[Rfam]
RNA sequence: AUGCCUUAAACUUAUGAAUAAGGAAAAUGACUAUUUGGGGUGAUGCCUGAAUCCUCACUGCUAAUGUGAAACAAACAAAUUUUUGAGUGGGUUAAGGUCGCUCCUAAGGUGACCUGCCUACUUUGCAGGAUGCCUCGGAGCUGCAAUCUGCCUG
Numbered sequence: 001a002u003g004c005c006u007u008a009a010a011c012u013u014a015u016g017a018a019u020a021a022g023g024a025a026a027a028u029g030a031c032u033a034u035u036u037g038g039g040g041u042g043a044u045g046c047c048u049g050a051a052u053c054c055u056c057a058c059u060g061c062u063a064a065u066g067u068g069a070a071a072c073a074a075a076c077a078a079a080u081u082u083u084u085g086a087g088u089g090g091g092u093u094a095a096g097g098u099c100g101c102u103c104c105u106a107a108g109g110u111g112a113c114c115u116g117c118c119u120a121c122u123u124u125g126c127a128g129g130a131u132g133c134c135u136c137g138g139a140g141c142u143g144c145a146a147u148c149u150g151c152c153u154g
Base pairs, nucleotide, nucleotide: 004023005022006021007020008019033052034051035050036049037048038047039046055069056068057067058066088154089153090152091151092150095149096148097147098146100144101143104138105137107135108134109133110132111131113129114128115127116126117125
RNA: U12 minor spliceosomal RNA
Organism: Erinaceus europaeus